Overview
A member of the RNA family "Small nucleolar RNA SNORD82" from Pangasianodon hypophthalmus, 67 nucleotides long. On this family, see Galardi et al., Mol Cell Biol 2002: "Purified box C/D snoRNPs are able to reproduce site-specific 2'-O-methylation of target RNA in vitro". Rfam links the family to the GO terms RNA processing and nucleolus. The family's consensus secondary structure was predicted with PFOLD. Taxonomically the source falls in Pangasianodon (Eukaryota, Osteoglossocephalai, Characiphysae, Siluroidei). snoRNA U82 or Z25 is found in both humans and mice. The family's RNA type in Rfam is C/D-box small nucleolar RNA.

RNA sequence: UGCACAGAUGAUGACUCUCAAGGGACUUAAUACUGACACUUGAUGAUUUUAUUUUGAUCUGAUGUGC
Numbered sequence: 001u002g003c004a005c006a007g008a009u010g011a012u013g014a015c016u017c018u019c020a021a022g023g024g025a026c027u028u029a030a031u032a033c034u035g036a037c038a039c040u041u042g043a044u045g046a047u048u049u050u051a052u053u054u055u056g057a058u059c060u061g062a063u064g065u066g067c
Stems, first nucleotide, its partner, number of pairs: 002067005